RNA sequence: UACUGAGUGGUUCUUUCCAGGACUGUCCAACCUGAGAAUGGUGAUUUCAGGCGCAAUCUCAGGUUCGUCAGCCCAUGAAACGCCAUCUCUAC
Numbered sequence: 001u002a003c004u005g006a007g008u009g010g011u012u013c014u015u016u017c018c019a020g021g022a023c024u025g026u027c028c029a030a031c032c033u034g035a036g037a038a039u040g041g042u043g044a045u046u047u048c049a050g051g052c053g054c055a056a057u058c059u060c061a062g063g064u065u066c067g068u069c070a071g072c073c074c075a076u077g078a079a080a081c082g083c084c085a086u087c088u089c090u091a092c
Stems, first nucleotide, its partner, number of pairs: 005089003008085004014080004020074002023071003027067001029065009039055002
RNA: mir-1388 microRNA precursor family
Organism: Cyprinodon variegatus